This 89-nucleotide RNA from Rotaria sordida belongs to the Rfam family "Small nucleolar RNA SNORD24". By type it is a C/D-box small nucleolar RNA. The match comes from Rfam's covariance-model search (47 bits).
RNA sequence: CGUCGAUGAUGAUGACAUAUAGUUGCUACUCUCGACUUCAUUAAUAAAGAGGAAUGACGAUAUAACUAUCCACUAAGAUCUCUGAGACG
Numbered sequence: 001c002g003u004c005g006a007u008g009a010u011g012a013u014g015a016c017a018u019a020u021a022g023u024u025g026c027u028a029c030u031c032u033c034g035a036c037u038u039c040a041u042u043a044a045u046a047a048a049g050a051g052g053a054a055u056g057a058c059g060a061u062a063u064a065a066c067u068a069u070c071c072a073c074u075a076a077g078a079u080c081u082c083u084g085a086g087a088c089g
Stems, first nucleotide, its partner, number of pairs: 001089004
Dot-bracket structure: ((((.................................................................................))))
The family's consensus secondary structure was predicted with PFOLD. Its family is annotated with nucleolus and RNA processing in the Gene Ontology.